[Rfam]
RNA sequence: GUACUGGAUGGGAGUUGUACCGUUGUGGCCCAUAGCUGAGAACCGAAGGAGAGCGAAUUGCCAGGUUCACAGACAGUCA
Numbered sequence: 001g002u003a004c005u006g007g008a009u010g011g012g013a014g015u016u017g018u019a020c021c022g023u024u025g026u027g028g029c030c031c032a033u034a035g036c037u038g039a040g041a042a043c044c045g046a047a048g049g050a051g052a053g054c055g056a057a058u059u060g061c062c063a064g065g066u067u068c069a070c071a072g073a074c075a076g077u078c079a
Stems, first nucleotide, its partner, number of pairs: 003077004009032004037071002040068005
Rfam assigns this 79-nucleotide RNA sequence from Pleurocapsales cyanobacterium LEGE 10410 to the family "CyVA-1 RNA". The match comes from Rfam's covariance-model search (68 bits). The family's consensus secondary structure is taken from published work. By type it is a small RNA. The source organism's lineage runs through Bacteria, Bacillati, Cyanobacteriota, Cyanophyceae and Pleurocapsales. Cyanobacteria, Acidobacteria (1 example), Verrucomicrobia (1 example).